[Rfam]
A member of the RNA family "Flavo-1 RNA" from Flavobacterium pygoscelis, 82 nucleotides long. NCBI's taxonomy places the organism under Bacteria, Bacteroidota, Flavobacteriales, Flavobacteriaceae, Flavobacterium.
RNA sequence: UCCUAGCCCAGAUAGAAGUGGAAAUCCUUUUUAUUUUUUUUGAAAAAAAAUAAAAAGAUUGGAACAAAUAGCUGGAAAAAGC
Number, nucleotide and partner (000 for none) at each position: 001u000002c000003c000004u000005a000006g000007c000008c000009c074010a073011g072012a000013u070014a069015g000016a000017a000018g065019u064020g000021g000022a000023a060024a059025u058026c057027c000028u000029u055030u054031u053032u052033a051034u050035u049036u048037u047038u046039u045040u000041u000042g000043a000044a000045a039046a038047a037048a036049a035050a034051u033052a032053a031054a030055a029056a000057g026058a025059u024060u023061g000062g000063a000064a019065c018066a000067a000068a000069u014070a013071g000072c011073u010074g009075g000076a000077a000078a000079a000080a000081g000082c000